[Rfam]
RNA sequence: CAUUGCGGGAGAGGCGCAACACUCAGGCAGUUUAAUCCAAGGCAACUAGGGCCGUUUGAGGAUUAAAUGAUGGGAGUGCUUGCCGAGGUGUGAAUUCACUAGACUGGAAUGAACAUCGGCUGAGUCAGGUUGAAUCCUAUCAGCUGUCAUUUAACGCAAGUUUAAAUGGAGUGCUCUGAUUAAU
Numbered sequence: 001c002a003u004u005g006c007g008g009g010a011g012a013g014g015c016g017c018a019a020c021a022c023u024c025a026g027g028c029a030g031u032u033u034a035a036u037c038c039a040a041g042g043c044a045a046c047u048a049g050g051g052c053c054g055u056u057u058g059a060g061g062a063u064u065a066a067a068u069g070a071u072g073g074g075a076g077u078g079c080u081u082g083c084c085g086a087g088g089u090g091u092g093a094a095u096u097c098a099c100u101a102g103a104c105u106g107g108a109a110u111g112a113a114c115a116u117c118g119g120c121u122g123a124g125u126c127a128g129g130u131u132g133a134a135u136c137c138u139a140u141c142a143g144c145u146g147u148c149a150u151u152u153a154a155c156g157c158a159a160g161u162u163u164a165a166a167u168g169g170a171g172u173g174c175u176c177u178g179a180u181u182a183a184u
Base pairs, nucleotide, nucleotide: 008177009176010175011174016083017082018081019080020078021077022076023075024074031067032066033065034064035063036062037061038060087117088116089115090114091113094110095109096108097107118145119144120143121142122141123140127138128137129136147169148168149167150166151165152164153163
The family of this 184-nucleotide sequence from Actinobacillus pleuropneumoniae is "Lysine riboswitch aptamer".
A search with the family's covariance model found it, with a score of 63 bits.
Pairs were carried over by alignment from the consensus structure, which is taken from published work.
Taxonomically the source falls in Actinobacillus pleuropneumoniae serovar 5 (Bacteria, Pseudomonadota, Actinobacillus, Actinobacillus pleuropneumoniae).